The record is a 340-nucleotide part of an RNA from Thermomicrobium roseum, which matches "Bacterial large subunit ribosomal RNA" in Rfam. The family's consensus secondary structure is taken from published work. Rfam's curators put it in the seed alignment. The source organism's lineage runs through Bacteria, Pseudomonadati, Thermomicrobia, Thermomicrobiales and Thermomicrobium roseum.
RNA sequence: CGGGAGAACCCCCGUCAAGGAACUCGGCAAAUUGCCCCCGUAACUUCGGGAGAAGGGGGGCCCCGGUAGGGUGAUGAGCCCGAGGGGGUUGCAGAGAGCAGGCCCGCGCGACUGGUUACCAAAACCACAGGUCUCGGCGAAGGCGGAAAGCCGACGUAUCGGGGCUGACGCCUGCCCAGUGCCGGAAGGUGAACCGGAGGGGUGGAGAGCCCCGAAGGGAAGCCCCGGUGAACGGCGGCCGUAACUAUAACGGUCCUAAGGUAGCGAAAUUCCUCGUCGGGUAAAUUCCGACCCGCACGAAAGGCGUCACGACGUGGGCACUGUCUCGACGGGGGGCCCG
Dot-bracket structure: ((((....((((((((.(((..............(((((....(....).....)))))(((((..(.((((.....)))).).)))))(...).......(((((((((..(((.........)))..(((((((((...(((.....)))...)..))))))))..((((.(((..(((((((..(((...((...(((((.....)))))...))...))))))))..)))))((((((.......))))))(...).....(.........((((((.....))))))).........))))...)).)))))))....))).)))))))).))))